[Rfam]
Notes: The record is a 116-nucleotide RNA sequence from Erinaceus europaeus, which matches "Small nucleolar RNA SNORA26" in Rfam.

RNA sequence: GUGCCCUUUUAAAGAUUGAUGCAGUGCUUUAAGAGGCUAACACAGAAAGGCUAAGUCUCCAUAAAACCCAGGGAAGAGAUUGAAAACUCCUCUUUGGAUACUAUCUGCAAACAGGU
Numbered sequence: 001g002u003g004c005c006c007u008u009u010u011a012a013a014g015a016u017u018g019a020u021g022c023a024g025u026g027c028u029u030u031a032a033g034a035g036g037c038u039a040a041c042a043c044a045g046a047a048a049g050g051c052u053a054a055g056u057c058u059c060c061a062u063a064a065a066a067c068c069c070a071g072g073g074a075a076g077a078g079a080u081u082g083a084a085a086a087c088u089c090c091u092c093u094u095u096g097g098a099u100a101c102u103a104u105c106u107g108c109a110a111a112c113a114g115g116u
Base pairs, nucleotide, nucleotide: 003051004050005049007047008046009045010044014041016040017039018038020036022033058109060107061106068097069096070095071094072093073092074091076089077088078087080086081085
Pairs were carried over by alignment from the consensus structure, which was predicted with RNAalifold. For this family Rfam cites "RNomics: an experimental approach that identifies 201 candidates for novel, small, non-messenger RNAs in mouse" (Huttenhofer et al., EMBO J, 2001). Lineage of the source: Eukaryota > Gnathostomata > Tetrapoda > Laurasiatheria > Erinaceus. Rfam's curators write: The snoRNA HBI-6 belong to the H/ACA family of snoRNAs, guiding the pseudouridylation of position U4522 if the 28S rRNA. HBI-6 is the human orthologue of mouse MBI-6 snoRNA. It scores 91 bits against the family's covariance model.